[Rfam]
RNA sequence: UUAUGUCAAGGGCGAACCUGUUAAAAGCCGGGGGCGCAAAGCCACAGGGUCUAAGGCGUUUUCGGACGUUAUGAUAGUCUGGCUGCCAAA
Numbered sequence: 001u002u003a004u005g006u007c008a009a010g011g012g013c014g015a016a017c018c019u020g021u022u023a024a025a026a027g028c029c030g031g032g033g034g035c036g037c038a039a040a041g042c043c044a045c046a047g048g049g050u051c052u053a054a055g056g057c058g059u060u061u062u063c064g065g066a067c068g069u070u071a072u073g074a075u076a077g078u079c080u081g082g083c084u085g086c087c088a089a090a
Stems, first nucleotide, its partner, number of pairs: 012037002017032004022027001040084004046080003049075003056069004
RNA: c-di-GMP-I riboswitch aptamer
Organism: Youngiibacter fragilis